The record is a 72-nucleotide sequence from Heterostelium album, which matches "tRNA" in Rfam. Rfam 15.1 lists 5,335,975 matches to the family in 14,413 species. Taxonomically the source falls in Heterostelium album (Eukaryota, Amoebozoa, Evosea, Eumycetozoa). It scores 46 bits against the family's covariance model. Pairs were carried over by alignment from the consensus structure, which is taken from published work.
[Rfam]
RNA sequence: GGGGAAGUGGUAUACAUGGUAGAACGCUAGCUUUGCAUGCUUGAAAACCGGGAUCGAUACCCGGCUUCUCCA
Number, nucleotide and partner (000 for none) at each position: 001g071002g070003g069004g068005a067006a066007g065008u000009g000010g025011u024012a000013u022014a000015c000016a000017u000018g000019g000020u000021a000022g013023a000024a011025c010026g000027c043028u000029a041030g040031c039032u000033u000034u000035g000036c000037a000038u000039g031040c030041u029042u000043g027044a000045a000046a000047a000048c064049c063050g062051g061052g060053a000054u000055c000056g000057a000058u000059a000060c052061c051062c050063g049064g048065c007066u006067u005068c004069u003070c002071c001072a000